The record is a 112-nucleotide RNA from Rhododendron simsii, which matches "Small nucleolar RNA snoR100" in Rfam. The match comes from Rfam's covariance-model search (66 bits).
[Rfam]
RNA sequence: CAAUAAAGGAAGCACGGUAAUUUGCACAGAAAUUGAAUUGCUUCUCUAAAUUUGUCAUUUCUGAUGCCAUUUGGCUUUAAUUUGGGGGCAUAUAUGGUUCCGCAGCAAAAUA
Numbered sequence: 001c002a003a004u005a006a007a008g009g010a011a012g013c014a015c016g017g018u019a020a021u022u023u024g025c026a027c028a029g030a031a032a033u034u035g036a037a038u039u040g041c042u043u044c045u046c047u048a049a050a051u052u053u054g055u056c057a058u059u060u061c062u063g064a065u066g067c068c069a070u071u072u073g074g075c076u077u078u079a080a081u082u083u084g085g086g087g088g089c090a091u092a093u094a095u096g097g098u099u100c101c102g103c104a105g106c107a108a109a110a111u112a
Base pairs, nucleotide, nucleotide: 012025013024014023043088044087050081051080052079054075055074056073

Pairs were carried over by alignment from the consensus structure, which was predicted with WAR.